This 80-nucleotide sequence from Alligator mississippiensis belongs to the Rfam family "Mammalian CPEB3 ribozyme". Lineage of the source: Eukaryota > Sauropsida > Sauria > Archelosauria > Alligator. Its family is annotated with RNA nuclease activity in the Gene Ontology. Pairs were carried over by alignment from the consensus structure, which is taken from published work.
RNA sequence: AGAGCUUGCAAGUGUGAAGCCAAAGAAGAAGCACUUAUGGCGCAGUCAUGUCAGAUUCCAAUAAAUCUGUGAAUCCUGCU
Numbered sequence: 001a002g003a004g005c006u007u008g009c010a011a012g013u014g015u016g017a018a019g020c021c022a023a024a025g026a027a028g029a030a031g032c033a034c035u036u037a038u039g040g041c042g043c044a045g046u047c048a049u050g051u052c053a054g055a056u057u058c059c060a061a062u063a064a065a066u067c068u069g070u071g072a073a074u075c076c077u078g079c080u
Stems, first nucleotide, its partner, number of pairs: 013048002019046002024080002027077002030074001031043002052069006